mir-33 microRNA precursor family: a 68-nucleotide RNA from Lingula anatina. NCBI's taxonomy places the organism under Eukaryota, Protostomia, Linguliformea, Lingulata, Lingula. Rfam 15.1 lists 1,467 matches to the family in 815 species. On this family, see Li et al., BMC Genomics 2009: "Direct sequencing and expression analysis of a large number of miRNAs in Aedes aegypti and a multi-species survey of novel mosquito miRNAs".
RNA sequence: CUCUAGUGCAUUGUAGUUGCAUUGCAUUAGCUGUCAUAGUAUGCAAUGCAUCUGCAGUGCAAUUAGAG
Numbered sequence: 001c002u003c004u005a006g007u008g009c010a011u012u013g014u015a016g017u018u019g020c021a022u023u024g025c026a027u028u029a030g031c032u033g034u035c036a037u038a039g040u041a042u043g044c045a046a047u048g049c050a051u052c053u054g055c056a057g058u059g060c061a062a063u064u065a066g067a068g
Stems, first nucleotide, its partner, number of pairs: 001068004006064001007061010019049001021047007